This 128-nucleotide sequence from Pelusios castaneus belongs to the Rfam family "Small nucleolar RNA ACA64". On this family, see Schattner et al., RNA 2006: "A computational screen for mammalian pseudouridylation guide H/ACA RNAs".
RNA sequence: ACAAUCUGAAAAUCACCUCUGGCCUCUGUCGUGGCUCCUGAGGGGAUAACUGUGCCUACAGCAACAGGAGCGUUAAGCUUACUGCCCACAGACCAUGUGUGGGGAGUAAAACCCAUGUUCCUAUAACC
Numbered sequence: 001a002c003a004a005u006c007u008g009a010a011a012a013u014c015a016c017c018u019c020u021g022g023c024c025u026c027u028g029u030c031g032u033g034g035c036u037c038c039u040g041a042g043g044g045g046a047u048a049a050c051u052g053u054g055c056c057u058a059c060a061g062c063a064a065c066a067g068g069a070g071c072g073u074u075a076a077g078c079u080u081a082c083u084g085c086c087c088a089c090a091g092a093c094c095a096u097g098u099g100u101g102g103g104g105a106g107u108a109a110a111a112c113c114c115a116u117g118u119u120c121c122u123a124u125a126a127c128c
Stems, first nucleotide, its partner, number of pairs: 006052001008050001010047001013044002021036004067121001069119005079109005087101003
Its family is annotated with nucleolus and RNA processing in the Gene Ontology. A search with the family's covariance model found it, with a score of 79 bits. Taxonomically the source falls in Pelusios (Eukaryota, Deuterostomia, Euteleostomi, Testudinata). The family has 30 seed sequences and 9,537 matches in Rfam 15.1.